[Rfam]
RNA sequence: CUGCUACGCCAUCUGGUGAAUGGCUCGGCUCGGAUGCCGACGAAGGACGUGCCAAGCUGCGAUAAGCCUGAGGGAGCCGCACGGAGGCUAAGAACUCAGGAUCUCCGAAUGGGAAUCCCCACCGCAAUUGCCACGCGCAAUGGGGAACGUCCGGAAUUGAAACAUCUUAGUACGGACAGGAAGAGAAAUCGUAACGAGACGCCGUUAGUAACCGCGAGUGAAGGCGGCAUAGCCCAAACCGAAGCCCUUCGGGGCAAUGUGGUGUGUGGGCUGGCUCUCAUCGCCUGAACGUCUGUGUGAAGUCUCCUGAAAUGGAGCGCGAGACAGGGUGAAAGCCCCGUAUCACAGUCCUUUACGGCGUGCGCCAGUACCGGAGUAGCGGGGGUUGGAAUUCCCUCGUGAACGAGGCAGGCAUCGACUGCCAAGGCUAAGUACUCUCCGAGACCGAUAGCGAACAAGUAGCGCGAGCGAACGCUGAAAAGUACCCUCCAACGGGGGGUGAAAUAGGGCCUGAAAUCAGAUGGUUAUAGAGC
Numbered sequence: 001c002u003g004c005u006a007c008g009c010c011a012u013c014u015g016g017u018g019a020a021u022g023g024c025u026c027g028g029c030u031c032g033g034a035u036g037c038c039g040a041c042g043a044a045g046g047a048c049g050u051g052c053c054a055a056g057c058u059g060c061g062a063u064a065a066g067c068c069u070g071a072g073g074g075a076g077c078c079g080c081a082c083g084g085a086g087g088c089u090a091a092g093a094a095c096u097c098a099g100g101a102u103c104u105c106c107g108a109a110u111g112g113g114a115a116u117c118c119c120c121a122c123c124g125c126a127a128u129u130g131c132c133a134c135g136c137g138c139a140a141u142g143g144g145g146a147a148c149g150u151c152c153g154g155a156a157u158u159g160a161a162a163c164a165u166c167u168u169a170g171u172a173c174g175g176a177c178a179g180g181a182a183g184a185g186a187a188a189u190c191g192u193a194a195c196g197a198g199a200c201g202c203c204g205u206u207a208g209u210a211a212c213c214g215c216g217a218g219u220g221a222a223g224g225c226g227g228c229a230u231a232g233c234c235c236a237a238a239c240c241g242a243a244g245c246c247c248u249u250c251g252g253g254g255c256a257a258u259g260u261g262g263u264g265u266g267u268g269g270g271c272u273g274g275c276u277c278u279c280a281u282c283g284c285c286u287g288a289a290c291g292u293c294u295g296u297g298u299g300a301a302g303u304c305u306c307c308u309g310a311a312a313u314g315g316a317g318c319g320c321g322a323g324a325c326a327g328g329g330u331g332a333a334a335g336c337c338c339c340g341u342a343u344c345a346c347a348g349u350c351c352u353u354u355a356c357g358g359c360g361u362g363c364g365c366c367a368g369u370a371c372c373g374g375a376g377u378a379g380c381g382g383g384g385g386u387u388g389g390a391a392u393u394c395c396c397u398c399g400u401g402a403a404c405g406a407g408g409c410a411g412g413c414a415u416c417g418a419c420u421g422c423c424a425a426g427g428c429u430a431a432g433u434a435c436u437c438u439c440c441g442a443g444a445c446c447g448a449u450a451g452c453g454a455a456c457a458a459g460u461a462g463c464g465c466g467a468g469c470g471a472a473c474g475c476u477g478a479a480a481a482g483u484a485c486c487c488u489c490c491a492a493c494g495g496g497g498g499g500u501g502a503a504a505u506a507g508g509g510c511c512u513g514a515a516a517u518c519a520g521a522u523g524g525u526u527a528u529a530g531a532g533c
Stems, first nucleotide, its partner, number of pairs: 008525009022511001023475002027446002029443006036435001045106003048061003067100006076088003111120003127141005148179001149177005159166002189197002201228005211219002231429004239262003244255004272367004282360004296345002302318001304317004321325001327339003379400007407423005462469002
Archaeal large subunit ribosomal RNA: a 533-nucleotide part of an RNA from Halodesulfurarchaeum formicicum. Its Rfam clan is "LSU clan". Pairs were carried over by alignment from the consensus structure, which is taken from published work. A search with the family's covariance model found it, with a score of 2823 bits.